[Rfam]
RNA sequence: GCGUCGGUUUAGCUCAGUGGUUACUUCUACAAUCCACGUAUCUUUCUCUGACGGGCUGCUGUCCGUCGGAGAUCGACCACGGGCGCUGUCCGAUGCUUUU
Numbered sequence: 001g002c003g004u005c006g007g008u009u010u011a012g013c014u015c016a017g018u019g020g021u022u023a024c025u026u027c028u029a030c031a032a033u034c035c036a037c038g039u040a041u042c043u044u045u046c047u048c049u050g051a052c053g054g055g056c057u058g059c060u061g062u063c064c065g066u067c068g069g070a071g072a073u074c075g076a077c078c079a080c081g082g083g084c085g086c087u088g089u090c091c092g093a094u095g096c097u098u099u100u
Stems, first nucleotide, its partner, number of pairs: 002095006012084004017080004026076002029073001

The record is a 100-nucleotide sequence from Gasterosteus aculeatus, which matches "Vault RNA" in Rfam. The organism belongs to Gasterosteus, within Eukaryota. By type it is a non-coding RNA gene. It is one of the family's seed sequences. For this family Rfam cites "Evolution of Vault RNAs" (Stadler et al., Mol Biol Evol, 2009). Rfam 15.1 lists 2,873 matches to the family in 431 species.